The family of this 104-nucleotide sequence from Bhargavaea cecembensis is "Guanidine-I riboswitch aptamer". The base pairs follow the family's consensus structure. The match comes from Rfam's covariance-model search (94 bits). Gene Ontology term of the family: regulation of gene expression.

[Rfam]
RNA sequence: GAAAAUGUCCCCUAGGGUUCCGCGGCGCCUGGCGCGCCGGACUGGUCCGAGAGGGGGCUCACGGCACUGUUGCCGUGCCACGGAAGGACAAAAGCCUGGGAGAU
Dot-bracket structure: ......((((((..((...(((((((((.....))))))..).)).))....)))))).(((((((....))))))).(.[...(((.......))).)..]..
Numbered sequence: 001g002a003a004a005a006u007g008u009c010c011c012c013u014a015g016g017g018u019u020c021c022g023c024g025g026c027g028c029c030u031g032g033c034g035c036g037c038c039g040g041a042c043u044g045g046u047c048c049g050a051g052a053g054g055g056g057g058c059u060c061a062c063g064g065c066a067c068u069g070u071u072g073c074c075g076u077g078c079c080a081c082g083g084a085a086g087g088a089c090a091a092a093a094g095c096c097u098g099g100g101a102g103a104u
Stems, first nucleotide, its partner, number of pairs: 007058006015048002020045002022042001023039006060077007079099001081102001085097003